[Rfam]
RNA sequence: CCUUAUAGAACCUGCAUUGUACACACUGUGUGUGUGGCUCUGAUUUACACAGCGCAUACAAUGUGGAUACUAUAUCA
Numbered sequence: 001c002c003u004u005a006u007a008g009a010a011c012c013u014g015c016a017u018u019g020u021a022c023a024c025a026c027u028g029u030g031u032g033u034g035u036g037g038c039u040c041u042g043a044u045u046u047a048c049a050c051a052g053c054g055c056a057u058a059c060a061a062u063g064u065g066g067a068u069a070c071u072a073u074a075u076c077a
Stems, first nucleotide, its partner, number of pairs: 012066002015063007024054001026052006
Rfam assigns this 77-nucleotide RNA sequence from Leptobrachium leishanense to the family "mir-460 microRNA precursor family". The family's consensus secondary structure was predicted with RNAalifold. A reference for the family is Xu et al. (2006), "Identification of microRNAs from different tissues of chicken embryo and adult chicken", FEBS Lett. Rfam links the family to the GO terms miRNA-mediated post-transcriptional gene silencing and RISC complex. Taxonomically the source falls in Leptobrachium (Eukaryota, Opisthokonta, Amphibia, Batrachia).